[Rfam]
RNA: Pseudomonas sRNA P36
RNA sequence: ACACCUGUUACCGCGGACAUCCCGCGUAACAAAGGCCGGGUUCAUCGGUAACGAAAACCCG
Numbered sequence: 001a002c003a004c005c006u007g008u009u010a011c012c013g014c015g016g017a018c019a020u021c022c023c024g025c026g027u028a029a030c031a032a033a034g035g036c037c038g039g040g041u042u043c044a045u046c047g048g049u050a051a052c053g054a055a056a057a058c059c060c061g
Base pairs, nucleotide, nucleotide: 006031007030008029009028010027011026013025014024015023016022037061038060039059040058041057042056045054046053047052